[Rfam]
Nucleotides: 074
Base pairs, nucleotide, nucleotide: 001065002064003063004062
Number, partner (000 for none) and nucleotide at each position: 001065g002064a003063g004062a005000a006000a007000u008000g009000a010000g011000g012000a013000u014000a015000u016000a017000u018000u019000c020000u021000u022000u023000u024000u025000c026000u027000u028000a029000u030000u031000u032000c033000u034000g035000u036000a037000g038000u039000g040000a041000a042000g043000a044000c045000u046000u047000c048000a049000g050000a051000u052000c053000c054000a055000a056000c057000u058000c059000u060000g061000a062004u063003c064002u065001c066000a067000c068000a069000c070000u071000g072000a073000u074000g
Overview
This 74-nucleotide RNA from Toxostoma redivivum belongs to the Rfam family "Small nucleolar RNA SNORD19". Taxonomically the source falls in Toxostoma (Eukaryota, Chordata, Sauropsida, Dinosauria). The family is grouped with related families in Rfam's "SNORD19 clan". Rfam 15.1 lists 1,431 matches to the family in 609 species. For this family Rfam cites "RNomics: an experimental approach that identifies 201 candidates for novel, small, non-messenger RNAs in mouse" (Huttenhofer et al., EMBO J, 2001). The pairing is the family consensus, mapped onto this sequence. Rfam classes the family as a C/D-box small nucleolar RNA.